[Rfam]
The record is a 99-nucleotide RNA from Belnapia rosea, which matches "Bacterial small signal recognition particle RNA" in Rfam. NCBI's taxonomy places the organism under Bacteria, Alphaproteobacteria, Acetobacterales, Roseomonadaceae, Belnapia. Its family is annotated with signal recognition particle, plasma membrane targeting and SRP-dependent cotranslational protein targeting to membrane, signal sequence recognition in the Gene Ontology. Rfam describes the family as follows. The signal recognition particle (SRP) is a universally conserved ribonucleoprotein involved in the co-translational targeting of proteins to membranes. The family's RNA type in Rfam is non-coding RNA gene. Pairs were carried over by alignment from the consensus structure, which is taken from published work.
RNA sequence: GGAAGGUCGGUGGUGGACGGGCUCCCCGCCAACCCGGUCAGGUCCGGAAGGAAGCAGCCGUAACGGGUUCUCGCCUGGGUCGCUUGCCGGCCUUCCACC
Numbered sequence: 001g002g003a004a005g006g007u008c009g010g011u012g013g014u015g016g017a018c019g020g021g022c023u024c025c026c027c028g029c030c031a032a033c034c035c036g037g038u039c040a041g042g043u044c045c046g047g048a049a050g051g052a053a054g055c056a057g058c059c060g061u062a063a064c065g066g067g068u069u070c071u072c073g074c075c076u077g078g079g080u081c082g083c084u085u086g087c088c089g090g091c092c093u094u095c096c097a098c099c
Base pairs, nucleotide, nucleotide: 004093005092006091007090008089012084013083014082015081018077019076020075021074022073025067026066027065028064035060036059037058038057043052044051045050